[Rfam]
RNA: SAM riboswitch aptamer (S box leader)
RNA sequence: UACUUAUCAAGAGUGGUGGAGGGACUGGCCCUAUGAAGCCCAGCAACCAAUUUUAUGGUGCUAAAUCCUGCAGUUUUUACUGAAAGAUAAGAG
Dot-bracket structure: (.((((((....(.(((...(((.[.[[)))......))))((((.(((....)..))))))...(]].]((((....))))..))))))).)